Rfam assigns this 77-nucleotide sequence from Felis catus to the family "Mammalian CPEB3 ribozyme".
RNA sequence: AGAAGAUAACAGGGACCACAGCAGAAGUUUCACAUCGUGGCCCCUGUCAGAUGCCAGUGAAUCUGUAAAUUUCUGCU
Numbered sequence: 001a002g003a004a005g006a007u008a009a010c011a012g013g014g015a016c017c018a019c020a021g022c023a024g025a026a027g028u029u030u031c032a033c034a035u036c037g038u039g040g041c042c043c044c045u046g047u048c049a050g051a052u053g054c055c056a057g058u059g060a061a062u063c064u065g066u067a068a069a070u071u072u073c074u075g076c077u
Base pairs, nucleotide, nucleotide: 012044013043014042016040017039020077021076022075023074024073025072026070027038028037048065049064050063051062052061054059

Lineage of the source: Eukaryota > Laurasiatheria > Feliformia > Felinae > Felis. A search with the family's covariance model found it, with a score of 54 bits.